[Rfam]
This 62-nucleotide sequence from Lyngbya sp. PCC 8106 belongs to the Rfam family "Plastid-psbN 5UTR RNA". Plastid psbN is a non-coding RNA (ncRNA) recognised in plastids. It was reported as a conserved 11 stem-loop in the prime untranslated region (5UTR) of psbN genes. It has been reported that the motif is retained in a subset of mature transcripts in barley, which can suggests a possible role in transcript alternative 5 prime processing. Lineage of the source: Bacteria > Oscillatoriophycideae > Oscillatoriales > Microcoleaceae > Lyngbya.
RNA sequence: UGAAAACACCCAUCAGAGGCGUUGUACCCCAACCCGGAGCGACUUUACCGUAUUCAGAGUUC
Numbered sequence: 001u002g003a004a005a006a007c008a009c010c011c012a013u014c015a016g017a018g019g020c021g022u023u024g025u026a027c028c029c030c031a032a033c034c035c036g037g038a039g040c041g042a043c044u045u046u047a048c049c050g051u052a053u054u055c056a057g058a059g060u061u062c
Stems, first nucleotide, its partner, number of pairs: 018046002021043005027037002